[Rfam]
This 49-nucleotide RNA sequence from Podarcis muralis belongs to the Rfam family "MAT2A 3'UTR stem loop D". The literature on the family includes a 2011 paper in Genome Res by Parker et al., "New families of human regulatory RNA structures identified by comparative analysis of vertebrate genomes". The match comes from Rfam's covariance-model search (32 bits). The family's RNA type in Rfam is cis-regulatory element.

RNA sequence: UCUGGGGUGGGGCGGGGGUGGGGGGUGGGUUUGAAGCCUCCACCUCAGA
Numbered sequence: 001u002c003u004g005g006g007g008u009g010g011g012g013c014g015g016g017g018g019u020g021g022g023g024g025g026u027g028g029g030u031u032u033g034a035a036g037c038c039u040c041c042a043c044c045u046c047a048g049a
Stems, first nucleotide, its partner, number of pairs: 001049008009040005